[Rfam]
RNA: Fungal signal recognition particle RNA
Organism: Hyaloscypha bicolor
RNA sequence: UGGCUGUGAUGGUCAUAAGUGUGGAAGACUUCAACACCCCAGAUUUCUCCACCCAUUACGUUCGCAAGAACACCACCAACAGUGCCCAGUUCGAACAUGGCGGUGGUUCCCCACUCGCAUAGGUAACUUGCGAUGCUGGUGGGACCUUAAGCAAUGAAGAACAUUUCUUGAGGGAGGCUUCACUCUGCAGAGAGAUCUUCACCGUGGUGUGGCGGCAUUGGAUUACACUUGUCGCGUGGUUUGGGUGUUGAGCCUAGGUUGAGCGUCAACCACAUCUU
Numbered sequence: 001u002g003g004c005u006g007u008g009a010u011g012g013u014c015a016u017a018a019g020u021g022u023g024g025a026a027g028a029c030u031u032c033a034a035c036a037c038c039c040c041a042g043a044u045u046u047c048u049c050c051a052c053c054c055a056u057u058a059c060g061u062u063c064g065c066a067a068g069a070a071c072a073c074c075a076c077c078a079a080c081a082g083u084g085c086c087c088a089g090u091u092c093g094a095a096c097a098u099g100g101c102g103g104u105g106g107u108u109c110c111c112c113a114c115u116c117g118c119a120u121a122g123g124u125a126a127c128u129u130g131c132g133a134u135g136c137u138g139g140u141g142g143g144a145c146c147u148u149a150a151g152c153a154a155u156g157a158a159g160a161a162c163a164u165u166u167c168u169u170g171a172g173g174g175a176g177g178c179u180u181c182a183c184u185c186u187g188c189a190g191a192g193a194g195a196u197c198u199u200c201a202c203c204g205u206g207g208u209g210u211g212g213c214g215g216c217a218u219u220g221g222a223u224u225a226c227a228c229u230u231g232u233c234g235c236g237u238g239g240u241u242u243g244g245g246u247g248u249u250g251a252g253c254c255u256a257g258g259u260u261g262a263g264c265g266u267c268a269a270c271c272a273c274a275u276c277u278u
Stems, first nucleotide, its partner, number of pairs: 001015004019275006028266002031262003045252003050247006063068001074238003077234001079232003082228003086221005091215003095210004100205004105146001107144004111139003115133005121128002147151001155201006165194005174185003